RNA sequence: GACUUACAGGUCGUGGCAGGUUAAGGCAGAAAAUGCUGCAGCCAAAGCGAAAGCGAGUCCGAAUAGGGCGAUAAGUCACGAUUUGUAGACCCGAACCCGGGUGAUCUAACCAUGUCCAGGAUGAAGCUUGGGUAACACCAAGUGGAGGUCCGCACCGACCGAUGUUGAAAAAUCGGCGGAUGAGGUGUGGUUAGGGGUGAAAUGCCAAUCGAACCCGGAGCUAGCUGGUU
Numbered sequence: 001g002a003c004u005u006a007c008a009g010g011u012c013g014u015g016g017c018a019g020g021u022u023a024a025g026g027c028a029g030a031a032a033a034u035g036c037u038g039c040a041g042c043c044a045a046a047g048c049g050a051a052a053g054c055g056a057g058u059c060c061g062a063a064u065a066g067g068g069c070g071a072u073a074a075g076u077c078a079c080g081a082u083u084u085g086u087a088g089a090c091c092c093g094a095a096c097c098c099g100g101g102u103g104a105u106c107u108a109a110c111c112a113u114g115u116c117c118a119g120g121a122u123g124a125a126g127c128u129u130g131g132g133u134a135a136c137a138c139c140a141a142g143u144g145g146a147g148g149u150c151c152g153c154a155c156c157g158a159c160c161g162a163u164g165u166u167g168a169a170a171a172a173u174c175g176g177c178g179g180a181u182g183a184g185g186u187g188u189g190g191u192u193a194g195g196g197g198u199g200a201a202a203u204g205c206c207a208a209u210c211g212a213a214c215c216c217g218g219a220g221c222u223a224g225c226u227g228g229u230u
Stems, first nucleotide, its partner, number of pairs: 005087013019043004025037003047054002057069004090228002093225001097218006106194011117182001119151004126143006155179003159176005196206003